[Rfam]
RNA sequence: AACGUUGAGCUCAGGCAACGGUCAUGCGUCGCCUUUCCAGCCGGAAGUAGCCACUCGCGCGGCGAAGCAACGCUCC
Numbered sequence: 001a002a003c004g005u006u007g008a009g010c011u012c013a014g015g016c017a018a019c020g021g022u023c024a025u026g027c028g029u030c031g032c033c034u035u036u037c038c039a040g041c042c043g044g045a046a047g048u049a050g051c052c053a054c055u056c057g058c059g060c061g062g063c064g065a066a067g068c069a070a071c072g073c074u075c076c
Stems, first nucleotide, its partner, number of pairs: 003072005009041003044073001050063003
RNA: Glutamine riboswitch aptamer (glnA leader)